[Rfam]
RNA sequence: GUUAAUGUAGCUUAAACUAAAGGCAAGGCACUGAAAAUGCCAAGAUGAGUGUACGCACUCCAUGAACA
Numbered sequence: 001g002u003u004a005a006u007g008u009a010g011c012u013u014a015a016a017c018u019a020a021a022g023g024c025a026a027g028g029c030a031c032u033g034a035a036a037a038u039g040c041c042a043a044g045a046u047g048a049g050u051g052u053a054c055g056c057a058c059u060c061c062a063u064g065a066a067c068a
Base pairs, nucleotide, nucleotide: 001067002066003065005063006062007061010024011023012022013021027041028040029039030038047060048059049058050057051056